Overview
Bacterial RNase P class A: a 419-nucleotide sequence from Planktothrix tepida. Rfam classes the family as a ribozyme. A search with the family's covariance model found it, with a score of 238 bits.
RNA sequence: AGAGUAAGCGCAGGCGAUUACGGACUUGUUAAGAGUCUGAGGAAAGUCCGGGCUCCCGAAAGACCAAACUUGCUGGGUAACGCCCAGUGCGAGUAAUCGUGAGGAUAGUGCCACAGAAAGAUACCGCCUUUUUACAGUCAACCGUGAACAGUCAAUCUUUUGAUAACUGAUAACUGAUAACUGAUAAGGGGUAAGGGUGCAAAGGUGUGGUAAGAGCGCACCAGCAACGUCGUGAGGCGUUGGCUCGGUAAACCCCGGUUGGGAGCAAGGUCGGAGGAACUAAGGUUGGUCUUUUUCCCGUUCCGAUCAAAAGUGGUACCGCUAGAGGUGUUUGGUAACAGACAUCCCAGAUAGAUAAUCGCCAUCUAAAGCUGAUUUCAGCCUGGAUAACAGAACCCGGCUUAUGUCUGACUCUUUCC
Numbered sequence: 001a002g003a004g005u006a007a008g009c010g011c012a013g014g015c016g017a018u019u020a021c022g023g024a025c026u027u028g029u030u031a032a033g034a035g036u037c038u039g040a041g042g043a044a045a046g047u048c049c050g051g052g053c054u055c056c057c058g059a060a061a062g063a064c065c066a067a068a069c070u071u072g073c074u075g076g077g078u079a080a081c082g083c084c085c086a087g088u089g090c091g092a093g094u095a096a097u098c099g100u101g102a103g104g105a106u107a108g109u110g111c112c113a114c115a116g117a118a119a120g121a122u123a124c125c126g127c128c129u130u131u132u133u134a135c136a137g138u139c140a141a142c143c144g145u146g147a148a149c150a151g152u153c154a155a156u157c158u159u160u161u162g163a164u165a166a167c168u169g170a171u172a173a174c175u176g177a178u179a180a181c182u183g184a185u186a187a188g189g190g191g192u193a194a195g196g197g198u199g200c201a202a203a204g205g206u207g208u209g210g211u212a213a214g215a216g217c218g219c220a221c222c223a224g225c226a227a228c229g230u231c232g233u234g235a236g237g238c239g240u241u242g243g244c245u246c247g248g249u250a251a252a253c254c255c256c257g258g259u260u261g262g263g264a265g266c267a268a269g270g271u272c273g274g275a276g277g278a279a280c281u282a283a284g285g286u287u288g289g290u291c292u293u294u295u296u297c298c299c300g301u302u303c304c305g306a307u308c309a310a311a312a313g314u315g316g317u318a319c320c321g322c323u324a325g326a327g328g329u330g331u332u333u334g335g336u337a338a339c340a341g342a343c344a345u346c347c348c349a350g351a352u353a354g355a356u357a358a359u360c361g362c363c364a365u366c367u368a369a370a371g372c373u374g375a376u377u378u379c380a381g382c383c384u385g386g387a388u389a390a391c392a393g394a395a396c397c398c399g400g401c402u403u404a405u406g407u408c409u410g411a412c413u414c415u416u417u418c419c
Stems, first nucleotide, its partner, number of pairs: 001415005007409002010407003013363007021039007044403003048400005053265004067260003071257002073087005088102001089100004103255002108253002110249003124196002126192007204222006224244001225242007269320003272316001286310006327346008